[Rfam]
RNA sequence: UUGAGUGGUGUAAACAUCCUUGACUGGAAGCUGUUAGCAUCAUAAGAGGGCUUUCAGUCGGAUGUUUGCAGCAUUCGA
Numbered sequence: 001u002u003g004a005g006u007g008g009u010g011u012a013a014a015c016a017u018c019c020u021u022g023a024c025u026g027g028a029a030g031c032u033g034u035u036a037g038c039a040u041c042a043u044a045a046g047a048g049g050g051c052u053u054u055c056a057g058u059c060g061g062a063u064g065u066u067u068g069c070a071g072c073a074u075u076c077g078a
Stems, first nucleotide, its partner, number of pairs: 002077005009070011023058010
This 78-nucleotide RNA from Erpetoichthys calabaricus belongs to the Rfam family "mir-30 microRNA precursor family". A reference for the family is Lagos-Quintana et al. (2001), "Identification of novel genes coding for small expressed RNAs", Science. Rfam describes the family as follows. This family consists of the mammalian microRNA (miRNA) precursor mir-30a. Animal miRNAs are transcribed as ~70nt precursors and subsequently processed by the Dicer enzyme to give a ~22nt product. In this case the mature sequence comes from both the 3' (miR-30) and 5' (mir-97-6) arms of the precursor. Rfam 15.1 lists 3,879 matches to the family in 647 species. NCBI's taxonomy places the organism under Eukaryota, Metazoa, Vertebrata, Euteleostomi, Erpetoichthys. It scores 70 bits against the family's covariance model. The family's consensus secondary structure was predicted with PFOLD. Gene Ontology terms of the family: gene silencing by miRNA and RISC complex.